Rfam assigns this 128-nucleotide sequence from Acipenser ruthenus to the family "Small nucleolar RNA SNORA63". E3 belongs to the H/ACA class of snoRNAs and is involved in the processing of eukaryotic pre-rRNA and has regions of complementarity to 18S rRNA. E3 is encoded in introns in the gene for protein synthesis initiation factor 4AII. NCBI's taxonomy places the organism under Eukaryota, Metazoa, Bilateria, Acipenseriformes, Acipenser. Rfam classes the family as an H/ACA-box small nucleolar RNA. The family's consensus secondary structure was predicted with PFOLD. For this family Rfam cites "Three small nucleolar RNAs that are involved in ribosomal RNA precursor processing" (Mishra and Eliceiri, Proc Natl Acad Sci U S A, 1997). Rfam links the family to the GO terms RNA processing and nucleolus.

[Rfam]
RNA sequence: AUGCAGGUAAAGUUACAAUACAGCUGUUGGGUGCUGUUUUGUCGUUCCCCCUGCACAAAGUAACUCGUUUCUUACUAUCCCUGUUUGUCUUGUUAUCACGGCUAACAGGGACGCUUAGUCACGAACAU
Numbered sequence: 001a002u003g004c005a006g007g008u009a010a011a012g013u014u015a016c017a018a019u020a021c022a023g024c025u026g027u028u029g030g031g032u033g034c035u036g037u038u039u040u041g042u043c044g045u046u047c048c049c050c051c052u053g054c055a056c057a058a059a060g061u062a063a064c065u066c067g068u069u070u071c072u073u074a075c076u077a078u079c080c081c082u083g084u085u086u087g088u089c090u091u092g093u094u095a096u097c098a099c100g101g102c103u104a105a106c107a108g109g110g111a112c113g114c115u116u117a118g119u120c121a122c123g124a125a126c127a128u
Stems, first nucleotide, its partner, number of pairs: 003054005015042004020037005080109004085104001087102002